[Rfam]
Annotation
A member of the RNA family "Guanidine-II riboswitch aptamer (mini-ykkC)" from Paraburkholderia eburnea, 45 nucleotides long.

RNA sequence: GCGUAAGGACGACCUUGCGCUUCUUUUUUUUCGGGGACGGCCCCA
Numbered sequence: 001g002c003g004u005a006a007g008g009a010c011g012a013c014c015u016u017g018c019g020c021u022u023c024u025u026u027u028u029u030u031u032c033g034g035g036g037a038c039g040g041c042c043c044c045a
Stems, first nucleotide, its partner, number of pairs: 001020008033044004
Annotation
The match comes from Rfam's covariance-model search (43 bits). Lineage of the source: Bacteria > Betaproteobacteria > Burkholderiales > Burkholderiaceae > Paraburkholderia. Its family is annotated with regulation of gene expression in the Gene Ontology.